[Rfam]
RNA sequence: CCCGCCACUGUACCUGUCUUGUCAUGCAGUGACUAGUGCAGUCCAGAGGUGAGCUGACAGAAAAUGCCCACUUAGGAAACAGAGUUGUUCUUCUUGUGGGUAACUUUGUGCCGAAGUCUGCAAACAGGC
Numbered sequence: 001c002c003c004g005c006c007a008c009u010g011u012a013c014c015u016g017u018c019u020u021g022u023c024a025u026g027c028a029g030u031g032a033c034u035a036g037u038g039c040a041g042u043c044c045a046g047a048g049g050u051g052a053g054c055u056g057a058c059a060g061a062a063a064a065u066g067c068c069c070a071c072u073u074a075g076g077a078a079a080c081a082g083a084g085u086u087g088u089u090c091u092u093c094u095u096g097u098g099g100g101u102a103a104c105u106u107u108g109u110g111c112c113g114a115a116g117u118c119u120g121c122a123a124a125c126a127g128g129c
Base pairs, nucleotide, nucleotide: 005049006048008046009045010044018036019035021033023031024030065122066121067120070117071116073115075112076111080108081107082106083105084104085103088100089099090098
The family of this 129-nucleotide RNA from Stercorarius parasiticus is "Small nucleolar RNA SNORA65". By type it is an H/ACA-box small nucleolar RNA. A reference for the family is Huttenhofer et al. (2001), "RNomics: an experimental approach that identifies 201 candidates for novel, small, non-messenger RNAs in mouse", EMBO J. The source organism's lineage runs through Eukaryota, Deuterostomia, Amniota, Neognathae and Stercorarius. The base pairs follow the family's consensus structure, which was predicted with RNAalifold.